This 30-nucleotide RNA sequence from Micromonospora rosaria belongs to the Rfam family "CRISPR RNA direct repeat element". Lineage of the source: Bacteria > Bacillati > Actinomycetes > Micromonosporaceae > Micromonospora.
[Rfam]
RNA sequence: GUUGCGAUCCCUUCAGGGGUCAUGAGCGAC
Numbered sequence: 001g002u003u004g005c006g007a008u009c010c011c012u013u014c015a016g017g018g019g020u021c022a023u024g025a026g027c028g029a030c
Stems, first nucleotide, its partner, number of pairs: 001030005007020005
The family's consensus secondary structure was predicted with WAR.